This 75-nucleotide RNA from Micromonospora pisi belongs to the Rfam family "ASpks TB sRNA". The match comes from Rfam's covariance-model search (62 bits). The family has 77 seed sequences and 9,052 matches in Rfam 15.1. Pairs were carried over by alignment from the consensus structure, which is taken from published work. By type it is an antisense RNA.
[Rfam]
RNA sequence: CUUGACCGACCCGAGCCACAGCGGUACGUCGGCCGAGCGGUCCUGUCCGUACGUCGCGAGCAGCGCCUCGGCUUC
Numbered sequence: 001c002u003u004g005a006c007c008g009a010c011c012c013g014a015g016c017c018a019c020a021g022c023g024g025u026a027c028g029u030c031g032g033c034c035g036a037g038c039g040g041u042c043c044u045g046u047c048c049g050u051a052c053g054u055c056g057c058g059a060g061c062a063g064c065g066c067c068u069c070g071g072c073u074u075c
Stems, first nucleotide, its partner, number of pairs: 015025003033071003038065002043060002047056001049054001